This 83-nucleotide RNA sequence from Parasphingorhabdus marina belongs to the Rfam family "ZMP/ZTP riboswitch aptamer (pfl RNA motif)". It scores 63 bits against the family's covariance model. Pairs were carried over by alignment from the consensus structure, which is taken from published work.
[Rfam]
RNA sequence: CGGAUUGUUCGCGACUGGCGAGACAGGAUGGAUCACCAUCGGGGAGCGAACAUCAUUGCGUGCCGUUCGCCUGGGCAGUUCCA
Numbered sequence: 001c002g003g004a005u006u007g008u009u010c011g012c013g014a015c016u017g018g019c020g021a022g023a024c025a026g027g028a029u030g031g032a033u034c035a036c037c038a039u040c041g042g043g044g045a046g047c048g049a050a051c052a053u054c055a056u057u058g059c060g061u062g063c064c065g066u067u068c069g070c071c072u073g074g075g076c077a078g079u080u081c082c083a
Base pairs, nucleotide, nucleotide: 006052007051008050009049010048011047012046015043016042017071018070019069020068021067028039029038030037031036061077062076063075064074